U1 spliceosomal RNA: a 170-nucleotide RNA sequence from Pipistrellus kuhlii. From the family's description: U1 is a small nuclear RNA (snRNA) component of the spliceosome (involved in pre-mRNA splicing). Its 5' end forms complementary base pairs with the 5' splice junction, thus defining the 5' donor site of an intron. It scores 124 bits against the family's covariance model. The literature on the family includes a 2001 paper in J Biol Chem by Katsamba et al., "Two functionally distinct steps mediate high affinity binding of U1A protein to U1 hairpin II RNA".
RNA sequence: AUACUUACCUGGCAGUGGAGAUACCAUGAUCAUGAAGGUGGUUUUCCCAGGGCGAGGCUUAUCCAUUGCACUCCGAAUGUGCUGACCCCUGCGAUUUCCCCAAAUGUGGGGAACUUGACUGCAUAAUUUGUGGUUUUUUAAAGAGAGGAACAUCGAUUCAUUGCCUCUUC
Numbered sequence: 001a002u003a004c005u006u007a008c009c010u011g012g013c014a015g016u017g018g019a020g021a022u023a024c025c026a027u028g029a030u031c032a033u034g035a036a037g038g039u040g041g042u043u044u045u046c047c048c049a050g051g052g053c054g055a056g057g058c059u060u061a062u063c064c065a066u067u068g069c070a071c072u073c074c075g076a077a078u079g080u081g082c083u084g085a086c087c088c089c090u091g092c093g094a095u096u097u098c099c100c101c102a103a104a105u106g107u108g109g110g111g112a113a114c115u116u117g118a119c120u121g122c123a124u125a126a127u128u129u130g131u132g133g134u135u136u137u138u139u140a141a142a143g144a145g146a147g148g149a150a151c152a153u154c155g156a157u158u159c160a161u162u163g164c165c166u167c168u169u170c
Stems, first nucleotide, its partner, number of pairs: 012122004017047005023042005049090004054086001056083003060079003064075001092117003095113003099109002142169001144168005